[Rfam]
The record is a 75-nucleotide RNA sequence from Microvirga brassicacearum, which matches "Makes More Granules Regulator RNA (mmgR)" in Rfam. Taxonomically the source falls in Microvirga (Bacteria, Pseudomonadota, Hyphomicrobiales, Methylobacteriaceae).
RNA sequence: UUAUCGUGCCCUUCUUGGGCGUUUCCUCCCUAAACUUCGGGCCGCUCGCAAGGGCGGCCUUUUUUCUUGCCCAAA
Numbered sequence: 001u002u003a004u005c006g007u008g009c010c011c012u013u014c015u016u017g018g019g020c021g022u023u024u025c026c027u028c029c030c031u032a033a034a035c036u037u038c039g040g041g042c043c044g045c046u047c048g049c050a051a052g053g054g055c056g057g058c059c060u061u062u063u064u065u066c067u068u069g070c071c072c073a074a075a
Stems, first nucleotide, its partner, number of pairs: 008020004039060009